[Rfam]
RNA: RNase MRP
Organism: Vitis rotundifolia
RNA sequence: CUUGCGCGAGAGCGAAGUGAGCGGGCCGCUAACACAUGGCCCAGGAAAGUCCCCGCGCUAGUAGCCGCAGAGAUGCGGGCUCGGAAACGAGUAAUUUCGACGGAAGUCCACAAGGCUGAGACACGCGUGGAGCUCAGGGCUUCCGCCGAAACGUUGUGGCCGAUUAUUACAGUUAUUCACUUGGUCCAUUGGAUCAACUGAACGGGGCUUACGCUCUCACGCGU
Number, nucleotide and partner (000 for none) at each position: 001c000002u000003u223004g222005c221006g220007c000008g218009a217010g216011a215012g000013c000014g000015a182016a181017g180018u179019g178020a177021g000022c000023g042024g041025g040026c039027c038028g037029c000030u000031a000032a000033c000034a000035c000036a000037u028038g027039g026040c025041c024042c023043a000044g000045g000046a000047a210048a209049g208050u000051c207052c206053c205054c204055g000056c000057g000058c000059u000060a000061g000062u000063a000064g000065c000066c077067g076068c075069a074070g000071a000072g000073a000074u069075g068076c067077g066078g000079g092080c091081u090082c089083g088084g000085a000086a000087a000088c083089g082090a081091g080092u079093a000094a000095u151096u150097u149098c000099g147100a000101c145102g144103g143104a142105a141106g140107u139108c138109c000110a000111c000112a000113a000114g134115g133116c132117u000118g000119a000120g000121a000122c000123a128124c000125g000126c000127g000128u123129g000130g000131a000132g116133c115134u114135c000136a000137g000138g108139g107140c106141u105142u104143c103144c102145g101146c000147c099148g000149a097150a096151a095152c000153g000154u000155u000156g000157u000158g000159g000160c000161c000162g000163a000164u000165u000166a000167u000168u000169a000170c000171a000172g000173u000174u000175a000176u000177u020178c019179a018180c017181u016182u015183g000184g194185u193186c192187c191188a000189u000190u000191g187192g186193a185194u184195c000196a000197a000198c000199u000200g000201a000202a000203c000204g054205g053206g052207g051208c049209u048210u047211a000212c000213g000214c000215u011216c010217u009218c008219a000220c006221g005222c004223g003224u000